[Rfam]
RNA sequence: CCGCACUAGUCGGGGAGUUAGCGGUGCCCUGUACCCGCGAUCCGCUACAGCGGGGAUGAAUCCCGGCCCCCGGACGUGUGGAUGUGCCGUCUGCCCUGGAUAAGCAGUGAUGAUAGACCGGUCCCGCGCAACGCGGCUCCGUGAACCGUGUCAGGCGGGGAACCGAGCAGCACUAAGCGGCCCGCCGCGUGUGCCGCGGGGGAACUGUUCUUGAGCCGGCUGUCCAGGUAACGGGCAUAUCCCGCGCUUCAAAGGCCGGUGUGCGG
Number, nucleotide and partner (000 for none) at each position: 001c266002c265003g264004c263005a262006c261007u000008a000009g057010u056011c055012g030013g029014g028015g027016a000017g025018u024019u023020a000021g000022c000023g019024g018025u017026g000027c015028c014029c013030u012031g000032u000033a000034c054035c053036c052037g051038c050039g000040a000041u000042c000043c000044g000045c000046u000047a000048c000049a000050g038051c037052g036053g035054g034055g011056a010057u009058g000059a000060a000061u000062c000063c259064c258065g257066g256067c255068c254069c000070c000071c000072g250073g249074a248075c246076g245077u000078g000079u000080g242081g241082a240083u239084g238085u237086g236087c235088c234089g000090u000091c000092u230093g229094c000095c000096c227097u226098g225099g224100a223101u222102a000103a000104g220105c219106a000107g216108u215109g000110a000111u000112g000113a000114u000115a211116g210117a209118c000119c207120g206121g205122u204123c200124c199125c198126g197127c196128g195129c191130a190131a000132c189133g188134c187135g186136g185137c000138u000139c180140c179141g178142u177143g000144a000145a000146c000147c000148g173149u172150g171151u170152c000153a000154g000155g000156c165157g164158g163159g000160g000161a000162a000163c158164c157165g156166a000167g000168c000169a000170g151171c150172a149173c148174u000175a000176a000177g142178c141179g140180g139181c000182c000183c000184g000185c136186c135187g134188c133189g132190u130191g129192u000193g000194c000195c128196g127197c126198g125199g124200g123201g000202g000203a000204a122205c121206u120207g119208u000209u117210c116211u115212u000213g000214a000215g108216c107217c000218g000219g105220c104221u000222g101223u100224c099225c098226a097227g096228g000229u093230a092231a000232c000233g000234g088235g087236c086237a085238u084239a083240u082241c081242c080243c000244g000245c076246g075247c000248u074249u073250c072251a000252a000253a000254g068255g067256c066257c065258g064259g063260u000261g006262u005263g004264c003265g002266g001
About this RNA
The record is a 266-nucleotide RNA from bacterium 1xD42-67, which matches "Bacterial large signal recognition particle RNA" in Rfam. A search with the family's covariance model found it, with a score of 189 bits. Rfam classes the family as a non-coding RNA gene. About the family: The signal recognition particle (SRP) is a universally conserved ribonucleoprotein involved in the co-translational targeting of proteins to membranes.